RNA sequence: UCGCACUGAUCAACAUACAUAACGUACUUUUCUUUCGCCUUUUACUAAAGAAAACCGUGUAUAUUGAUUAUCAUGUGCCUAGAUCAAUAUUUUUGGCGAUGUGCAAACAUCGA
Numbered sequence: 001u002c003g004c005a006c007u008g009a010u011c012a013a014c015a016u017a018c019a020u021a022a023c024g025u026a027c028u029u030u031u032c033u034u035u036c037g038c039c040u041u042u043u044a045c046u047a048a049a050g051a052a053a054a055c056c057g058u059g060u061a062u063a064u065u066g067a068u069u070a071u072c073a074u075g076u077g078c079c080u081a082g083a084u085c086a087a088u089a090u091u092u093u094u095g096g097c098g099a100u101g102u103g104c105a106a107a108c109a110u111c112g113a
Stems, first nucleotide, its partner, number of pairs: 003078004009068005015062005028054008097112006
The family of this 113-nucleotide RNA from Planoprotostelium fungivorum is "U5 spliceosomal RNA". Taxonomically the source falls in Planoprotostelium (Eukaryota, Evosea, Variosea, Cavosteliida). Rfam describes the family as follows. U5 RNA is a component of both types of known spliceosome. By type it is a spliceosomal small nuclear RNA. The base pairs follow the family's consensus structure, which is taken from published work.